[Rfam]
The family of this 129-nucleotide sequence from Edwardsiella hoshinae is "RtT RNA". This family represents a bacterial cis-regulatory element known as RtT RNA. The exact function of RtT is unknown although it is thought that it may be involved in changing the cellular response in relation to amino acid starvation. The base pairs follow the family's consensus structure, which is taken from published work. By type it is a cis-regulatory element. The match comes from Rfam's covariance-model search (117 bits). Rfam links the family to the GO term cellular response to amino acid starvation.

RNA sequence: CAGAACCCGAUCCGGGGAAGGUGAAAACCUUCGACAAGGUUCGAGUCGAGCAACGCGAGACAACGUUGCCGCAGGCAACGGCCCGGAGGGCGAGCCGCAACGCGGCGAGUCAUCCUUCCCCCACCACCA
Number, nucleotide and partner (000 for none) at each position: 001c000002a000003g000004a000005a000006c000007c000008c000009g000010a000011u000012c000013c000014g000015g120016g119017g118018a117019a116020g115021g114022u112023g000024a000025a000026a000027a000028c000029c000030u000031u000032c092033g091034a000035c089036a000037a000038g000039g000040u087041u086042c085043g084044a000045g000046u000047c057048g056049a000050g000051c000052a000053a000054c000055g000056c048057g047058a000059g000060a000061c000062a000063a000064c080065g079066u078067u077068g076069c075070c000071g000072c000073a000074g000075g069076c068077a067078a066079c065080g064081g000082c000083c000084c043085g042086g041087a040088g000089g035090g000091c033092g032093a000094g000095c000096c000097g000098c000099a000100a000101c000102g000103c000104g000105g000106c000107g000108a000109g000110u000111c000112a022113u000114c021115c020116u019117u018118c017119c016120c015121c000122c000123a000124c000125c000126a000127c000128c000129a000